RNA sequence: GCCGUUUUAGCUCAGUUGGUAGAGCAACGCUCUAGUAAAGCGUAGGUCGCUGGUCCGAGUCCAGUAAACGGCA
Numbered sequence: 001g002c003c004g005u006u007u008u009a010g011c012u013c014a015g016u017u018g019g020u021a022g023a024g025c026a027a028c029g030c031u032c033u034a035g036u037a038a039a040g041c042g043u044a045g046g047u048c049g050c051u052g053g054u055c056c057g058a059g060u061c062c063a064g065u066a067a068a069c070g071g072c073a
Stems, first nucleotide, its partner, number of pairs: 001072007010025004027043005049065005
Dot-bracket structure: (((((((..((((........)))).(((((.......))))).....(((((.......)))))))))))).
RNA: tRNA
Organism: Lacticaseibacillus thailandensis